RNA: Mammalian CPEB3 ribozyme
RNA sequence: UGCUGCAUCUACUGGGCUACAGCAGUAGCCACAAUGGAGAAGAAGGAGCCCAUGUCAGACCUUCAUCAGGUCUGCAAAUGCUUCA
Number, nucleotide and partner (000 for none) at each position: 001u000002g000003c000004u000005g000006c000007a000008u000009c000010u000011a000012c000013u052014g051015g050016g049017c048018u047019a000020c000021a000022g084023c000024a082025g081026u080027a079028g000029c000030c000031a000032c000033a000034a000035u000036g000037g000038a000039g000040a000041a000042g000043a000044a000045g000046g000047a018048g017049c016050c015051c014052a013053u000054g000055u000056c074057a073058g072059a071060c070061c069062u068063u000064c000065a000066u000067c000068a062069g061070g060071u059072c058073u057074g056075c000076a000077a000078a000079u027080g026081c025082u024083u000084c022085a000